[Rfam]
Nucleotides: 088
Stems, first nucleotide, its partner, number of pairs: 004081006016028004030067003033063002037061001039059001043054002
Number, partner (000 for none) and nucleotide at each position: 001000c002000g003000a004081c005080c006079u007078c008077u009076g010000g011000a012000a013000a014000g015000c016028g017027g018026a019025g020000c021000g022000a023000c024000g025019c026018u027017c028016c029000c030067g031066c032065c033063g034062a035000a036000g037061g038000u039059g040000c041000a042000a043054g044053c045000c046000c047000u048000c049000a050000c051000g052000g053044g054043u055000g056000a057000a058000g059039c060000u061037c062034u063033c064000a065032g066031g067030c068000a069000c070000c071000g072000a073000u074000g075000a076009c077008a078007g079006a080005g081004g082000g083000g084000g085000a086000g087000g088000c
The family of this 88-nucleotide RNA from Actinoallomurus bryophytorum is "Glycine riboswitch aptamer". Pairs were carried over by alignment from the consensus structure. The source organism's lineage runs through Bacteria, Bacillati, Streptosporangiales, Thermomonosporaceae and Actinoallomurus. From the family's description: This family represents the bacterial glycine riboswitch.